RNA sequence: UCGGAGGCACCGCCGAAUCGCCGUGGACGUGGGGAAGACGUCCAGGGCGGACCGGGGAACCAUGUUCCUGGGGUGAAUCGCACGGGCGCUCGCGCCCGUGGGUAGGGCAGACCUUGGCCCGAACCCGUCAGCUCACCCGGUAGGCGUCGAGGACACUGGAG
Numbered sequence: 001u002c003g004g005a006g007g008c009a010c011c012g013c014c015g016a017a018u019c020g021c022c023g024u025g026g027a028c029g030u031g032g033g034g035a036a037g038a039c040g041u042c043c044a045g046g047g048c049g050g051a052c053c054g055g056g057g058a059a060c061c062a063u064g065u066u067c068c069u070g071g072g073g074u075g076a077a078u079c080g081c082a083c084g085g086g087c088g089c090u091c092g093c094g095c096c097c098g099u100g101g102g103u104a105g106g107g108c109a110g111a112c113c114u115u116g117g118c119c120c121g122a123a124c125c126c127g128u129c130a131g132c133u134c135a136c137c138c139g140g141u142a143g144g145c146g147u148c149g150a151g152g153a154c155a156c157u158g159g160a161g
Stems, first nucleotide, its partner, number of pairs: 011146004018050005051141006061070002071126003079102001081100008105120004
RNA: c-di-AMP riboswitch aptamer (ydaO/yuaA leader)
Organism: Actinomycetales bacterium